[Rfam]
RNA sequence: GUCCCACAUCCAUUCACGAAGGAUCGUCCGGCACGUACCUGCCGGUGAAGGAGAAGAAU
Numbered sequence: 001g002u003c004c005c006a007c008a009u010c011c012a013u014u015c016a017c018g019a020a021g022g023a024u025c026g027u028c029c030g031g032c033a034c035g036u037a038c039c040u041g042c043c044g045g046u047g048a049a050g051g052a053g054a055a056g057a058a059u
Stems, first nucleotide, its partner, number of pairs: 010051002013049004028045006
Shown here is a 59-nucleotide RNA sequence from Marisediminicola antarctica, a member of the family "msiK RNA". Taxonomically the source falls in Marisediminicola (Bacteria, Actinomycetota, Actinomycetes, Micrococcales). It scores 59 bits against the family's covariance model. The base pairs follow the family's consensus structure, which is taken from published work.